[Rfam]
RNA sequence: AGCAGCACCGAGAGAGGCGACUCGGGAGCUGGCAGAAACCAGUCCCUAAGGCCUCAGAAGACUCCUUAGGGAGUGUUUUUGCGCCUUCAUAUCGUCUUCCACUAACAAGAAAGAUUCCGUAGUCUGCAGCUUGAAUCGAGAUCAUUCGUCAGGCUUGGAAUGCGGAGUCGAAUCGCUCGGGAAACGUCGGCGCGACCGAUGUUUCUCUCGGCUCCGCGGUCAGU
Numbered sequence: 001a002g003c004a005g006c007a008c009c010g011a012g013a014g015a016g017g018c019g020a021c022u023c024g025g026g027a028g029c030u031g032g033c034a035g036a037a038a039c040c041a042g043u044c045c046c047u048a049a050g051g052c053c054u055c056a057g058a059a060g061a062c063u064c065c066u067u068a069g070g071g072a073g074u075g076u077u078u079u080u081g082c083g084c085c086u087u088c089a090u091a092u093c094g095u096c097u098u099c100c101a102c103u104a105a106c107a108a109g110a111a112a113g114a115u116u117c118c119g120u121a122g123u124c125u126g127c128a129g130c131u132u133g134a135a136u137c138g139a140g141a142u143c144a145u146u147c148g149u150c151a152g153g154c155u156u157g158g159a160a161u162g163c164g165g166a167g168u169c170g171a172a173u174c175g176c177u178c179g180g181g182a183a184a185c186g187u188c189g190g191c192g193c194g195a196c197c198g199a200u201g202u203u204u205c206u207c208u209c210g211g212c213u214c215c216g217c218g219g220u221c222a223g224u
Base pairs, nucleotide, nucleotide: 003031004030005029006028008025009024010023011022012021032082033081034080035079036078037077038076043072044071045070046069047068048067049066050065051064162217163216164215165214166213167212168211169210170209171208179207180206181205182204183203184202185201186200187199188198189197190196
Dot-bracket structure: ..((((.(((((........)))))..))))(((((((....(((((((((............)))))))))...)))))))...............................................................................((((((((((.......((((((((((((.....)))))))))))))))))))))).......
Rfam assigns this 224-nucleotide RNA sequence to the family "Cyano-2 RNA".